[Rfam]
RNA: radC RNA
Organism: Thauera sinica
RNA sequence: AAUUCGUAGCCAUGCCUGCCGACCCCGUCGGCGACAUGCCCAGGUAGCCACGAUCUUCAAGGCUACGGCACGGCUUCGCGCGUGCUGAUCGACCCCGUUCGCAUCGCAUCCCUCGCCGCGAACAGCCGCCGUCCCGGUGGUGGAUGU
Numbered sequence: 001a002a003u004u005c006g007u008a009g010c011c012a013u014g015c016c017u018g019c020c021g022a023c024c025c026c027g028u029c030g031g032c033g034a035c036a037u038g039c040c041c042a043g044g045u046a047g048c049c050a051c052g053a054u055c056u057u058c059a060a061g062g063c064u065a066c067g068g069c070a071c072g073g074c075u076u077c078g079c080g081c082g083u084g085c086u087g088a089u090c091g092a093c094c095c096c097g098u099u100c101g102c103a104u105c106g107c108a109u110c111c112c113u114c115g116c117c118g119c120g121a122a123c124a125g126c127c128g129c130c131g132u133c134c135c136g137g138u139g140g141u142g143g144a145u146g147u
Stems, first nucleotide, its partner, number of pairs: 011038004015033001018032006044066006052090004067086006118147003125141007